Potassium channel RNA editing signal: a 114-nucleotide RNA sequence from Python bivittatus. Rfam's curators write: This family represents a group of sequences related to the human potassium channel Kv1.1 hairpin element which directs the efficient modification of an adenosine to inosine by an adenosine deaminase acting on RNA (ADAR). It is annotated as a cis-regulatory element. The literature on the family includes a 2004 paper in Nat Struct Mol Biol by Bhalla et al., "Control of human potassium channel inactivation by editing of a small mRNA hairpin".
RNA sequence: ACUAGUUACGGAGAUAUGGUGCCCAAGACAAUUGCUGGCAAGAUAUUUGGCUCCAUUUGUUCACUGAGUGGUGUGCUUGUCAUUGCUCUUCCUGUCCCAGUUAUUGUUUCCAAU
Numbered sequence: 001a002c003u004a005g006u007u008a009c010g011g012a013g014a015u016a017u018g019g020u021g022c023c024c025a026a027g028a029c030a031a032u033u034g035c036u037g038g039c040a041a042g043a044u045a046u047u048u049g050g051c052u053c054c055a056u057u058u059g060u061u062c063a064c065u066g067a068g069u070g071g072u073g074u075g076c077u078u079g080u081c082a083u084u085g086c087u088c089u090u091c092c093u094g095u096c097c098c099a100g101u102u103a104u105u106g107u108u109u110c111c112a113a114u
Base pairs, nucleotide, nucleotide: 001114005110008107009106010105011104013102014101015100018097019096021095022094037077038076039075040074050062
Dot-bracket structure: (...(..((((.(((..((.((..............((((.........(...........)...........))))................))))..))).))))..)...)